[Rfam]
Rfam assigns this 152-nucleotide RNA from Cajanus cajan to the family "small nucleolar RNA snoR137". Lineage of the source: Eukaryota > Spermatophyta > Fabales > Papilionoideae > Cajanus. Rfam classes the family as an H/ACA-box small nucleolar RNA.
RNA sequence: GUUGCUUCAUCUGGUGAACCCUCCUUAUUCUCCAUGGGAAUGUUCUUGUUUCCGAAGCAUAUAUAAAUAAAUUUUCUCUGAAUAACCAGUUUUAAACAGCGUGGUGUAAUUUUCUUUAAUCUACACUAUGCUACCUGUCUACUGGUACAUAA
Numbered sequence: 001g002u003u004g005c006u007u008c009a010u011c012u013g014g015u016g017a018a019c020c021c022u023c024c025u026u027a028u029u030c031u032c033c034a035u036g037g038g039a040a041u042g043u044u045c046u047u048g049u050u051u052c053c054g055a056a057g058c059a060u061a062u063a064u065a066a067a068u069a070a071a072u073u074u075u076c077u078c079u080g081a082a083u084a085a086c087c088a089g090u091u092u093u094a095a096a097c098a099g100c101g102u103g104g105u106g107u108a109a110u111u112u113u114c115u116u117u118a119a120u121c122u123a124c125a126c127u128a129u130g131c132u133a134c135c136u137g138u139c140u141a142c143u144g145g146u147a148c149a150u151a152a
Stems, first nucleotide, its partner, number of pairs: 003059006016045004022039003085146006098132003102128005

Gene Ontology terms of the family: RNA processing and nucleolus.